This 65-nucleotide RNA from Jaculus jaculus belongs to the Rfam family "mir-4680 microRNA precursor family". A search with the family's covariance model found it, with a score of 85 bits.
RNA sequence: ACUAAGAACUCUUGCAGUCUUAGAUGUUAUAAAAUAUAUAUCUGAAUUGUAAGAGUUGUUAGCAC
Numbered sequence: 001a002c003u004a005a006g007a008a009c010u011c012u013u014g015c016a017g018u019c020u021u022a023g024a025u026g027u028u029a030u031a032a033a034a035u036a037u038a039u040a041u042c043u044g045a046a047u048u049g050u051a052a053g054a055g056u057u058g059u060u061a062g063c064a065c
Base pairs, nucleotide, nucleotide: 004060005059007057008056009055010054011053012052013051014050015049016048017047018046020045021044022043023042024041025040026039027038029037030036031035